[Rfam]
RNA sequence: UGCCUUUGUGUUGCCCAUUCACACCAUCUUUUGGUGAAUGUGGUGUCAGAAAAGGCAUACAUCAACUCUAGUUGUCAUGUUUUUUUGAGUGGAUUAUUCAUUUUUCUCUGCAUUUCAGCUAGAACAUAG
Numbered sequence: 001u002g003c004c005u006u007u008g009u010g011u012u013g014c015c016c017a018u019u020c021a022c023a024c025c026a027u028c029u030u031u032u033g034g035u036g037a038a039u040g041u042g043g044u045g046u047c048a049g050a051a052a053a054g055g056c057a058u059a060c061a062u063c064a065a066c067u068c069u070a071g072u073u074g075u076c077a078u079g080u081u082u083u084u085u086u087g088a089g090u091g092g093a094u095u096a097u098u099c100a101u102u103u104u105u106c107u108c109u110g111c112a113u114u115u116c117a118g119c120u121a122g123a124a125c126a127u128a129g
Base pairs, nucleotide, nucleotide: 002056003055004054005053006052007051009048010047012045013044014043015042016040017039018038019037020036021035022034068122069121070120071119072118073117074116082112084110087106091102092101